[Rfam]
RNA sequence: UGCGCUUACUUUUAUCCAGUUUCUUCUUCAGGUGAAGAAAACUCUUUGUAAGUGUCCUAGAGAAAUAUAGUAGCUUUCUGUUCACCCUUUGCAAGUAAAAAGGGGUGGAUCGUUCCACUACUGACAUGU
Numbered sequence: 001u002g003c004g005c006u007u008a009c010u011u012u013u014a015u016c017c018a019g020u021u022u023c024u025u026c027u028u029c030a031g032g033u034g035a036a037g038a039a040a041a042c043u044c045u046u047u048g049u050a051a052g053u054g055u056c057c058u059a060g061a062g063a064a065a066u067a068u069a070g071u072a073g074c075u076u077u078c079u080g081u082u083c084a085c086c087c088u089u090u091g092c093a094a095g096u097a098a099a100a101a102g103g104g105g106u107g108g109a110u111c112g113u114u115c116c117a118c119u120a121c122u123g124a125c126a127u128g129u
Base pairs, nucleotide, nucleotide: 002055003054004053005052006051007050008049009048018043019042020041021040022038023037024036025035026034068123069122070121071120072119073118087102088101089100090099
The record is a 129-nucleotide RNA sequence from Myotis myotis, which matches "Small Cajal body specific RNA 24" in Rfam. Gene Ontology terms of the family: RNA processing, Cajal body and nucleolus. About the family: scaRNAs are a specific class of small nuclear RNAs which localise to the Cajal bodies and guide the modification of RNA polymerase II transcribed spliceosomal RNAs U1, U2, U4, U5 and U12. ACA12 belongs to the H/ACA box class of guide RNAs as it has the predicted hairpin-hinge-hairpin-tail structure,the conserved H/ACA-box motifs and is found associated with GAR1. The literature on the family includes a 2002 paper in EMBO J by Darzacq et al., "Cajal body-specific small nuclear RNAs: a novel class of 2'-O-methylation and pseudouridylation guide RNAs". It is annotated as a small Cajal body RNA. Lineage of the source: Eukaryota > Eumetazoa > Chordata > Yangochiroptera > Myotis.